Background:
This 395-nucleotide RNA from Ditibartonella apis belongs to the Rfam family "Bacterial RNase P class A".
[Rfam]
RNA sequence: UCAGUUGGUCGGGCAGCCGCGCCUUCUCAAUACCGAAAGGUGAAAGGUGAGGAAAGUCCGGGCUCCAUGGAAUAACGGUGCCGGAUAACGUCCGGCGAGGGCAACCUCAGGGAAAGUGCCACAGAAAUAUACCGCCUGUUCAAACAGGUAAGGGUGAAAAGGCGGGGUAAGAGCCCACCGCGCAUCCAGUAAUGGAUGUGGCAAGGUAAACCCCACCGGGAGCAAGACCGAAUAGGAAUGACACGCGAGCUUUGCUUGCAGCCGAUUUCCGGGCCUGUCAUUCGGGUAGGUUGCACGAGACGGGUGGUAACAUCCGUACUAGAUGAAUGGCUGUCACGCGGAAUUUUUAAUCAAAUUUCGCCAUACAGAACCCGGCUUACAGACCGACUGACAUU
Numbered sequence: 001u002c003a004g005u006u007g008g009u010c011g012g013g014c015a016g017c018c019g020c021g022c023c024u025u026c027u028c029a030a031u032a033c034c035g036a037a038a039g040g041u042g043a044a045a046g047g048u049g050a051g052g053a054a055a056g057u058c059c060g061g062g063c064u065c066c067a068u069g070g071a072a073u074a075a076c077g078g079u080g081c082c083g084g085a086u087a088a089c090g091u092c093c094g095g096c097g098a099g100g101g102c103a104a105c106c107u108c109a110g111g112g113a114a115a116g117u118g119c120c121a122c123a124g125a126a127a128u129a130u131a132c133c134g135c136c137u138g139u140u141c142a143a144a145c146a147g148g149u150a151a152g153g154g155u156g157a158a159a160a161g162g163c164g165g166g167g168u169a170a171g172a173g174c175c176c177a178c179c180g181c182g183c184a185u186c187c188a189g190u191a192a193u194g195g196a197u198g199u200g201g202c203a204a205g206g207u208a209a210a211c212c213c214c215a216c217c218g219g220g221a222g223c224a225a226g227a228c229c230g231a232a233u234a235g236g237a238a239u240g241a242c243a244c245g246c247g248a249g250c251u252u253u254g255c256u257u258g259c260a261g262c263c264g265a266u267u268u269c270c271g272g273g274c275c276u277g278u279c280a281u282u283c284g285g286g287u288a289g290g291u292u293g294c295a296c297g298a299g300a301c302g303g304g305u306g307g308u309a310a311c312a313u314c315c316g317u318a319c320u321a322g323a324u325g326a327a328u329g330g331c332u333g334u335c336a337c338g339c340g341g342a343a344u345u346u347u348u349a350a351u352c353a354a355a356u357u358u359c360g361c362c363a364u365a366c367a368g369a370a371c372c373c374g375g376c377u378u379a380c381a382g383a384c385c386g387a388c389u390g391a392c393a394u395u
Stems, first nucleotide, its partner, number of pairs: 001391010011380001012335007020049006027042001054378003058375005063222004072268001074266001076218005081095005096110001097108004111213002116211002118207003132153002134149006161179002164176003180202001181200008226292004236283006262272003300317007
From the family's description: Ribonuclease P (RNase P) is a ubiquitous endoribonuclease, found in archaea, bacteria and eukarya as well as chloroplasts and mitochondria. Rfam classes the family as a ribozyme. A search with the family's covariance model found it, with a score of 314 bits.